[Rfam]
RNA sequence: AAUUGCAUACAUCUAUUCACUCAUAUAAUAGCAAGAAUAUGGCUUGCGAGUUUCUACCAGUUUACCGUAAAUGAACUGACUAUGAGUAGCAUGACAUAGUAA
Number, nucleotide and partner (000 for none) at each position: 001a000002a000003u000004u000005g000006c000007a000008u000009a000010c000011a000012u000013c000014u000015a000016u000017u000018c000019a087020c086021u085022c084023a083024u082025a081026u000027a000028a000029u049030a000031g047032c046033a045034a044035g043036a000037a000038u000039a000040u000041g000042g000043c035044u034045u033046g032047c031048g000049a029050g000051u000052u000053u000054c000055u000056a000057c000058c078059a077060g076061u075062u074063u073064a072065c000066c000067g000068u000069a000070a000071a000072u064073g063074a062075a061076c060077u059078g058079a000080c000081u025082a024083u023084g022085a021086g020087u019088a000089g000090c000091a000092u000093g000094a000095c000096a000097u000098a000099g000100u000101a000102a000
RNA: Purine riboswitch aptamer